Annotation: The record is an 80-nucleotide RNA sequence from Butyrivibrio sp. ob235, which matches "c-di-GMP-I riboswitch aptamer" in Rfam.

RNA sequence: AACAUAUUUCGGCAAACUAUGGGUGACCAUAGGACGCAAAGCUAUAGGGACUUUUAUUACGAAGUCAGCCAGUUGCACUU
Numbered sequence: 001a002a003c004a005u006a007u008u009u010c011g012g013c014a015a016a017c018u019a020u021g022g023g024u025g026a027c028c029a030u031a032g033g034a035c036g037c038a039a040a041g042c043u044a045u046a047g048g049g050a051c052u053u054u055u056a057u058u059a060c061g062a063a064g065u066c067a068g069c070c071a072g073u074u075g076c077a078c079u080u
Stems, first nucleotide, its partner, number of pairs: 012037002017032006040074004047070002049066006